Rfam assigns this 372-nucleotide RNA from Helicobacter sp. MIT 99-10781 to the family "transfer-messenger RNA". The base pairs follow the family's consensus structure, which is taken from published work. The organism belongs to Helicobacter, within Bacteria. By type it is a non-coding RNA gene. About the family: Bacterial tmRNA, also known as 10Sa RNA or SsrA, is named for its dual tRNA and mRNA-like properties. Its role is to liberate the mRNA from a stalled ribosome. To accomplish this part of the tmRNA is used as a reading frame that ends in a translation stop signal.
RNA sequence: GGGGUUGAAAAGAAUUUCGACAGGAGUCAAAAAAGCUAAGUGCAUGUGAGCUGGCAUGCUCUAAAACUGCCAUUUUUAAAAUUAAACGCAAACAAUACAAAUUACGCUCCAGCUUAUGCAAAAGUAGCAUAAGUUUAACUACUCUUUAGGAGCCGACUAAGAUAGAAUUCCUAGCGUUUUAUCAUUAGUCGUAACGCGGCUAGGUGCUUGGCUGUAUCACCUCGCACAGACAAAAAGACAAAUGAGGUUGCUUAUUUAGCGGAGUUUGGAGAUUUGCUUGCUAGAUAAAAAGACUAAAAAUCUUGUCUAAACAUGUAGAUUCUUAGGGGAUUUGAUUUUUGGACUGGGGUUUGAUUCCCCACAACUCCACCA
Dot-bracket structure: (((((((.............((((((((((.....(((((.(((((([[[[(((((.]]]]......)))))...............................................(((.((((...........))))..)))......((((((.((((((((..[[...))))))))..))))))......]]........(((.((((...[.[[...)))).)))............]].]..((((((((((..(.(.[[.[..[[).)))))))))))..........]]...].]]...)))))....).))))).....))))))))))...(((((.......))))))))))))....
Numbered sequence: 001g002g003g004g005u006u007g008a009a010a011a012g013a014a015u016u017u018c019g020a021c022a023g024g025a026g027u028c029a030a031a032a033a034a035g036c037u038a039a040g041u042g043c044a045u046g047u048g049a050g051c052u053g054g055c056a057u058g059c060u061c062u063a064a065a066a067c068u069g070c071c072a073u074u075u076u077u078a079a080a081a082u083u084a085a086a087c088g089c090a091a092a093c094a095a096u097a098c099a100a101a102u103u104a105c106g107c108u109c110c111a112g113c114u115u116a117u118g119c120a121a122a123a124g125u126a127g128c129a130u131a132a133g134u135u136u137a138a139c140u141a142c143u144c145u146u147u148a149g150g151a152g153c154c155g156a157c158u159a160a161g162a163u164a165g166a167a168u169u170c171c172u173a174g175c176g177u178u179u180u181a182u183c184a185u186u187a188g189u190c191g192u193a194a195c196g197c198g199g200c201u202a203g204g205u206g207c208u209u210g211g212c213u214g215u216a217u218c219a220c221c222u223c224g225c226a227c228a229g230a231c232a233a234a235a236a237g238a239c240a241a242a243u244g245a246g247g248u249u250g251c252u253u254a255u256u257u258a259g260c261g262g263a264g265u266u267u268g269g270a271g272a273u274u275u276g277c278u279u280g281c282u283a284g285a286u287a288a289a290a291a292g293a294c295u296a297a298a299a300a301u302c303u304u305g306u307c308u309a310a311a312c313a314u315g316u317a318g319a320u321u322c323u324u325a326g327g328g329g330a331u332u333u334g335a336u337u338u339u340u341g342g343a344c345u346g347g348g349g350u351u352u353g354a355u356u357c358c359c360c361a362c363a364a365c366u367c368c369a370c371c372a
Stems, first nucleotide, its partner, number of pairs: 001368007021341010036326005042320001043315005048061004052072005120147003124142004154191006161183008171199002208233003212229004219249001221247002252288010264278001266276001268307002271304001274300002345361005